[Rfam]
RNA sequence: AUACUUUUCUCGGUCUUUCGGCUAAGAUCAAGUGUAGUAUCUAUUCUUAUCAGUUUAAUAUCUGAUAUGUGGACUAUUAGUCCACACGACAUUAAAUCAAAUUUUUAGGGGGGAGAGGCCUUUACAAUAUCUUACUGGGUCUCUCAAGUGUCGCCCAUGCGUUGCACUAUUGCAAAGUGUUUGGCGCACCCCAA
Numbered sequence: 001a002u003a004c005u006u007u008u009c010u011c012g013g014u015c016u017u018u019c020g021g022c023u024a025a026g027a028u029c030a031a032g033u034g035u036a037g038u039a040u041c042u043a044u045u046c047u048u049a050u051c052a053g054u055u056u057a058a059u060a061u062c063u064g065a066u067a068u069g070u071g072g073a074c075u076a077u078u079a080g081u082c083c084a085c086a087c088g089a090c091a092u093u094a095a096a097u098c099a100a101a102u103u104u105u106u107a108g109g110g111g112g113g114a115g116a117g118g119c120c121u122u123u124a125c126a127a128u129a130u131c132u133u134a135c136u137g138g139g140u141c142u143c144u145c146a147a148g149u150g151u152c153g154c155c156c157a158u159g160c161g162u163u164g165c166a167c168u169a170u171u172g173c174a175a176a177g178u179g180u181u182u183g184g185c186g187c188a189c190c191c192c193a194a
Base pairs, nucleotide, nucleotide: 008027009026010025012023013022014021015020048067049066050065051064052063053062069085070084071083072082073081074080075079113145114144115143116142117141118140119139120138148187149186150185151184152183153182155177158174159173160172

Shown here is a 194-nucleotide sequence from Acer yangbiense, a member of the family "U2 spliceosomal RNA". The source organism's lineage runs through Eukaryota, Streptophytina, Gunneridae, Pentapetalae and Acer. The base pairs follow the family's consensus structure, which is taken from published work. It is annotated as a spliceosomal small nuclear RNA. For this family Rfam cites "Crystal structure of a model branchpoint-U2 snRNA duplex containing bulged adenosines" (Berglund et al., RNA, 2001).